[Rfam]
RNA sequence: GUAAUGAGUCGCUCCACCGCGGCGCCCUUGGGCGACGAGGAAAGUCCGGGCAACGCAGAGCACCCUGCUUCCUAACGGGAAGGACGGAGAAGCGUAAAGCAACUUCGGACAGCCAGUGCCACAGAAAAUUACCGCCGUUCUUUGGCUGUUAGCUAGUAGUUGCUAGCUGUUAGCUCUCGUUGUAGAAAAGCUAACAGCUAAUAGCCAUCAGCCAAUAGCUCAAAAAAAGGUAAGGGUGAAAAGGUGCGGUAAGAGCGCACCAGCGGCCGGGUGACCGUGUCGGCUGGGUAAACCUCAGGGGUUGAAAGACCAAAUAAGCGGAUACGCUCCAGCCUUCGGGCUGGGGCACCGGGCGGCUCGUCCGGCGUCCGUGGGUAGGUUGAUGGAGCCUUUCCGCGAGGACUGGCCUAGAUAAAUGGUGGAGGCGCGGCAACGCGUACAAAACCCGGCUUACAGACUCAUUACCAGC
Numbered sequence: 001g002u003a004a005u006g007a008g009u010c011g012c013u014c015c016a017c018c019g020c021g022g023c024g025c026c027c028u029u030g031g032g033c034g035a036c037g038a039g040g041a042a043a044g045u046c047c048g049g050g051c052a053a054c055g056c057a058g059a060g061c062a063c064c065c066u067g068c069u070u071c072c073u074a075a076c077g078g079g080a081a082g083g084a085c086g087g088a089g090a091a092g093c094g095u096a097a098a099g100c101a102a103c104u105u106c107g108g109a110c111a112g113c114c115a116g117u118g119c120c121a122c123a124g125a126a127a128a129u130u131a132c133c134g135c136c137g138u139u140c141u142u143u144g145g146c147u148g149u150u151a152g153c154u155a156g157u158a159g160u161u162g163c164u165a166g167c168u169g170u171u172a173g174c175u176c177u178c179g180u181u182g183u184a185g186a187a188a189a190g191c192u193a194a195c196a197g198c199u200a201a202u203a204g205c206c207a208u209c210a211g212c213c214a215a216u217a218g219c220u221c222a223a224a225a226a227a228a229g230g231u232a233a234g235g236g237u238g239a240a241a242a243g244g245u246g247c248g249g250u251a252a253g254a255g256c257g258c259a260c261c262a263g264c265g266g267c268c269g270g271g272u273g274a275c276c277g278u279g280u281c282g283g284c285u286g287g288g289u290a291a292a293c294c295u296c297a298g299g300g301g302u303u304g305a306a307a308g309a310c311c312a313a314a315u316a317a318g319c320g321g322a323u324a325c326g327c328u329c330c331a332g333c334c335u336u337c338g339g340g341c342u343g344g345g346g347c348a349c350c351g352g353g354c355g356g357c358u359c360g361u362c363c364g365g366c367g368u369c370c371g372u373g374g375g376u377a378g379g380u381u382g383a384u385g386g387a388g389c390c391u392u393u394c395c396g397c398g399a400g401g402a403c404u405g406g407c408c409u410a411g412a413u414a415a416a417u418g419g420u421g422g423a424g425g426c427g428c429g430g431c432a433a434c435g436c437g438u439a440c441a442a443a444a445c446c447c448g449g450c451u452u453a454c455a456g457a458c459u460c461a462u463u464a465c466c467a468g469c
Stems, first nucleotide, its partner, number of pairs: 001465010011454001012424007020037002023034004042452003046449005051304004058359004063300005068082005083110001085107005111295002116293002118289003132235002134231003138227002141224005243261006263284001264282004268277003308381004318372006350364005388407003393402003
The family of this 469-nucleotide RNA from Hymenobacter sp. NBH84 is "Bacterial RNase P class A". Rfam classes the family as a ribozyme. It scores 247 bits against the family's covariance model.